[Rfam]
RNA: Rhizobiales sRNA Atu_At1
RNA sequence: CCCGACCGCAUGUCAAACGGGCAAGACGGUACGGUGAACAAGGCGAUUUUCCCGUUUUCCCGCCUUGGCGCCAACGCACCGGCAGACGAGCACCUGUCCCGUCUGCGGC
Numbered sequence: 001c002c003c004g005a006c007c008g009c010a011u012g013u014c015a016a017a018c019g020g021g022c023a024a025g026a027c028g029g030u031a032c033g034g035u036g037a038a039c040a041a042g043g044c045g046a047u048u049u050u051c052c053c054g055u056u057u058u059c060c061c062g063c064c065u066u067g068g069c070g071c072c073a074a075c076g077c078a079c080c081g082g083c084a085g086a087c088g089a090g091c092a093c094c095u096g097u098c099c100c101g102u103c104u105g106c107g108g109c
Stems, first nucleotide, its partner, number of pairs: 006108004011023004025103003028099002033094004039067007070083003